[Rfam]
This 49-nucleotide sequence from Zoogloea dura belongs to the Rfam family "Guanidine-II riboswitch aptamer (mini-ykkC)". Gene Ontology term of the family: regulation of gene expression. The match comes from Rfam's covariance-model search (43 bits). The source organism's lineage runs through Bacteria, Pseudomonadati, Pseudomonadota, Zoogloeaceae and Zoogloea.
Nucleotides: 049
Stems, first nucleotide, its partner, number of pairs: 001020001003018006036049005
Number, partner (000 for none) and nucleotide at each position: 001020c002000c003018c004017c005016c006015g007014g008013g009000a010000c011000g012000a013008c014007c015006c016005g017004g018003g019000c020001g021000g022000a023000c024000a025000g026000g027000a028000a029000a030000g031000a032000u033000a034000a035000g036049g037048c038047g039046g040045g041000a042000c043000g044000a045040c046039c047038c048037g049036c